[Rfam]
RNA sequence: CUGGGCCGCUGGAGACGGCGGCUGAAUACCGUGGAGAAGUCAGCAGAGGGCAUAGUAGGCGGCGCCCCGCCGAAGGCC
Numbered sequence: 001c002u003g004g005g006c007c008g009c010u011g012g013a014g015a016c017g018g019c020g021g022c023u024g025a026a027u028a029c030c031g032u033g034g035a036g037a038a039g040u041c042a043g044c045a046g047a048g049g050g051c052a053u054a055g056u057a058g059g060c061g062g063c064g065c066c067c068c069g070c071c072g073a074a075g076g077c078c
Stems, first nucleotide, its partner, number of pairs: 002026001004023008040047002049078003058071005
The record is a 78-nucleotide RNA sequence from Candidatus Propionivibrio aalborgensis, which matches "Group II catalytic intron D1-D4-1" in Rfam. The source organism's lineage runs through Bacteria, Betaproteobacteria, Rhodocyclales, Rhodocyclaceae and Propionivibrio. Pairs were carried over by alignment from the consensus structure. The family has 237 seed sequences and 2,508 matches in Rfam 15.1. On this family, see Bonen and Vogel, Trends Genet 2001: "The ins and outs of group II introns".